The record is an 88-nucleotide RNA sequence from Candidatus Pelagibacter communis, which matches "Glycine riboswitch aptamer" in Rfam. The source organism's lineage runs through Bacteria, Pseudomonadati, Candidatus Pelagibacteraceae, Candidatus Pelagibacter and Candidatus Pelagibacter communis. The match comes from Rfam's covariance-model search (73 bits).

RNA sequence: UAAUUGAUAUCGGGAGAGACUAUUAAAUAAUAGCGCCGAAGGAGCAACCACCCCGGAAACUCUCAGGCAAAUGGACCGAUAACAAACA
Numbered sequence: 001u002a003a004u005u006g007a008u009a010u011c012g013g014g015a016g017a018g019a020c021u022a023u024u025a026a027a028u029a030a031u032a033g034c035g036c037c038g039a040a041g042g043a044g045c046a047a048c049c050a051c052c053c054c055g056g057a058a059a060c061u062c063u064c065a066g067g068c069a070a071a072u073g074g075a076c077c078g079a080u081a082a083c084a085a086a087c088a
Stems, first nucleotide, its partner, number of pairs: 006083001008081006020033004035068003038064002042062003048056002